[Rfam]
RNA sequence: GUUAUUCAAGGAUAGAACAGGCAGCUAUCACGCCCUCGUGGUCUUAAAGAGAUGUCGGAUUGCCACCCGACUGAAUAAC
Numbered sequence: 001g002u003u004a005u006u007c008a009a010g011g012a013u014a015g016a017a018c019a020g021g022c023a024g025c026u027a028u029c030a031c032g033c034c035c036u037c038g039u040g041g042u043c044u045u046a047a048a049g050a051g052a053u054g055u056c057g058g059a060u061u062g063c064c065a066c067c068c069g070a071c072u073g074a075a076u077a078a079c
Stems, first nucleotide, its partner, number of pairs: 001079008011029005020064004031049001032042003054071005

Shown here is a 79-nucleotide RNA, a member of the family "skipping-rope RNA". By type it is a small RNA. The sequence is in the family's curated seed alignment.